[Rfam]
RNA sequence: UUGACCUUGAUGAUGUGAAUGGAGUAAAGCCUUCGGGACCUUCAUUUGCUGAUGAAGGUCAA
Number, nucleotide and partner (000 for none) at each position: 001u062002u061003g060004a059005c058006c000007u000008u000009g000010a000011u000012g000013a000014u000015g049016u048017g047018a046019a045020u044021g043022g042023a041024g040025u000026a000027a000028a000029g000030c037031c036032u000033u000034c000035g000036g031037g030038a000039c000040c024041u023042u022043c021044a020045u019046u018047u017048g016049c015050u000051g000052a000053u000054g000055a000056a000057g000058g005059u004060c003061a002062a001
Shown here is a 62-nucleotide sequence from Chrysochloris asiatica, a member of the family "Selenocysteine insertion sequence 1".
The source organism's lineage runs through Eukaryota, Teleostomi, Tetrapoda, Mammalia and Chrysochloris.
About the family: The incorporation of selenocysteine into a protein sequence is directed by an in-frame UGA codon (usually a stop codon) within the coding region of the mRNA. Selenoprotein mRNAs contain a conserved secondary structure in the 3' UTR that is required for the distinction of UGA stop from UGA selenocysteine. The selenocysteine insertion sequence (SECIS) is around 60 nt in length and adopts a hairpin structure which is sufficiently well-defined and conserved to act as a computational screen for selenoprotein genes.
A search with the family's covariance model found it, with a score of 39 bits.
A reference for the family is Walczak et al. (1996), "A novel RNA structural motif in the selenocysteine insertion element of eukaryotic selenoprotein mRNAs", RNA.